[Rfam]
RNA: CopA-like RNA
Organism: Yersinia pestis
RNA sequence: AUAGAGCAACAGCUUCUAUACAGUUUUAAGUGGGCCCCGGUAACCUUCUCGCCUCGCCAAAGAUGAGGAAGUUUAUCGGGGUUUUUGCUU
Numbered sequence: 001a002u003a004g005a006g007c008a009a010c011a012g013c014u015u016c017u018a019u020a021c022a023g024u025u026u027u028a029a030g031u032g033g034g035c036c037c038c039g040g041u042a043a044c045c046u047u048c049u050c051g052c053c054u055c056g057c058c059a060a061a062g063a064u065g066a067g068g069a070a071g072u073u074u075a076u077c078g079g080g081g082u083u084u085u086u087g088c089u090u
Base pairs, nucleotide, nucleotide: 001019002018003017004016005015028090029089030088031087032084033083034082035081036080037079038078039077040076041075042074043073045071046070047069